This 161-nucleotide sequence from Nannospalax galili belongs to the Rfam family "U1 spliceosomal RNA". Lineage of the source: Eukaryota > Euteleostomi > Theria > Boreoeutheria > Nannospalax. About the family: U1 is a small nuclear RNA (snRNA) component of the spliceosome (involved in pre-mRNA splicing). Its 5' end forms complementary base pairs with the 5' splice junction, thus defining the 5' donor site of an intron.

RNA sequence: CUACUUACCUGACAGGAGAGACACCAUGAUCAGGGAGGUUUUCCCAGGGCGAGGCUCAUCCAAUGCACUGGGGAUGUGCUGACCCCUGAGAUUUCCCCAAAUGCAAGAAACGCAACUGCAUAAUUUGUGGUAGUAGGGGACUGUGUUCACACUCUCCCAUG
Numbered sequence: 001c002u003a004c005u006u007a008c009c010u011g012a013c014a015g016g017a018g019a020g021a022c023a024c025c026a027u028g029a030u031c032a033g034g035g036a037g038g039u040u041u042u043c044c045c046a047g048g049g050c051g052a053g054g055c056u057c058a059u060c061c062a063a064u065g066c067a068c069u070g071g072g073g074a075u076g077u078g079c080u081g082a083c084c085c086c087u088g089a090g091a092u093u094u095c096c097c098c099a100a101a102u103g104c105a106a107g108a109a110a111c112g113c114a115a116c117u118g119c120a121u122a123a124u125u126u127g128u129g130g131u132a133g134u135a136g137g138g139g140a141c142u143g144u145g146u147u148c149a150c151a152c153u154c155u156c157c158c159a160u161g
Stems, first nucleotide, its partner, number of pairs: 013118003016045001018043004023039003027035001046087004051083001053080003057076005090113001092110001093108002135160001137158004143152003